RNA sequence: AAUUUUUACUGGGGGAGCCGAAAGGCUGAGAGUCCCUGAUCUUGAUCGGGACGACCCUUGGAACCUGGUCUCGGUAAUGCGAGCGUAGGGAAGUAGACAGAUUCCGGA
Number, nucleotide and partner (000 for none) at each position: 001a000002a000003u000004u000005u000006u096007u095008a094009c093010u092011g058012g057013g056014g055015g000016a000017g026018c025019c024020g000021a000022a000023a000024g019025g018026c017027u000028g000029a000030g000031a000032g000033u051034c050035c049036c048037u000038g000039a000040u000041c000042u000043u000044g000045a000046u000047c000048g036049g035050g034051a033052c000053g000054a000055c014056c013057c012058u011059u000060g000061g000062a000063a000064c089065c088066u087067g086068g000069u000070c083071u082072c081073g080074g000075u000076a000077a000078u000079g000080c073081g072082a071083g070084c000085g000086u067087a066088g065089g064090g000091a000092a010093g009094u008095a007096g006097a000098c000099a000100g000101a000102u000103u000104c000105c000106g000107g000108a000
TPP riboswitch aptamer (THI element): a 108-nucleotide RNA sequence from Dehalogenimonas formicexedens. Pairs were carried over by alignment from the consensus structure, which is taken from published work.